[Rfam]
RNA sequence: UUCACCUGAGCAUCUUGUUAAAAUGCAGAUUCUGAUUCAGUUGUUCUUGGUUGGACCCGAGAGUCCGCAUUUCUAACAAGCUCUCAGGUGAUGGUCA
Number, nucleotide and partner (000 for none) at each position: 001u000002u000003c090004a089005c088006c000007u000008g000009a084010g083011c000012a000013u000014c080015u079016u078017g077018u076019u075020a074021a072022a071023a070024u000025g068026c067027a000028g065029a064030u000031u062032c061033u060034g000035a000036u000037u000038c000039a000040g000041u000042u000043g000044u000045u000046c000047u000048u000049g000050g000051u000052u000053g000054g000055a000056c000057c000058c000059g000060a033061g032062a031063g000064u029065c028066c000067g026068c025069a000070u023071u022072u021073c000074u020075a019076a018077c017078a016079a015080g014081c000082u000083c010084u009085c000086a000087g000088g005089u004090g003091a000092u000093g000094g000095u000096c000097a000
Rfam assigns this 97-nucleotide RNA from Myotis myotis to the family "mir-544 microRNA precursor family". Lineage of the source: Eukaryota > Eumetazoa > Chordata > Vespertilionidae > Myotis. A search with the family's covariance model found it, with a score of 73 bits.